[Rfam]
Nucleotides: 130
Stems, first nucleotide, its partner, number of pairs: 002058005007052002013046001016044004023037004067122005073116001075114001079112003083108002087104005
Number, partner (000 for none) and nucleotide at each position: 001000g002058c003057c004056a005055a006054g007052a008051u009000a010000a011000g012000a013046g014000u015000a016044a017043c018042a019041u020000g021000c022000u023037g024036a025035c026034a027000c028000a029000g030000c031000u032000c033000u034026u035025g036024u037023c038000c039000a040000g041019g042018u043017g044016u045000a046013u047000c048000a049000g050000a051008a052007u053000c054006c055005u056004u057003g058002g059000a060000g061000a062000a063000c064000c065000u066000g067122c068121u069120g070119g071118u072000a073116u074000a075114g076000a077000u078000u079112c080111a081110c082000c083108g084107g085000a086000a087104g088103g089102g090101g091100c092000a093000a094000u095000g096000a097000g098000u099000g100091g101090c102089c103088c104087c105000c106000g107084u108083u109000a110081g111080u112079g113000c114075c115000c116073a117000g118071a119070u120069c121068a122067g123000a124000a125000a126000c127000a128000u129000g130000c
Rfam assigns this 130-nucleotide RNA sequence from Prolemur simus to the family "Small nucleolar RNA SNORA3/SNORA45 family". Clan: SNORA3 clan. The organism belongs to Prolemur, within Eukaryota. The family's consensus secondary structure was predicted with RNAalifold. A reference for the family is Huttenhofer et al. (2001), "RNomics: an experimental approach that identifies 201 candidates for novel, small, non-messenger RNAs in mouse", EMBO J. Rfam 15.1 lists 2,080 matches to the family in 639 species. The match comes from Rfam's covariance-model search (77 bits). From the family's description: The members of this family belong to the H/ACA class of snoRNAs which are thought to guide the sites of modification of uridines to pseudouridines. This family includes mouse snoMBI-28 and human homologues ACA3 (SNORA3) and ACA3-2 (SNORA45). Both ACA3 and ACA3-2 share the same host gene.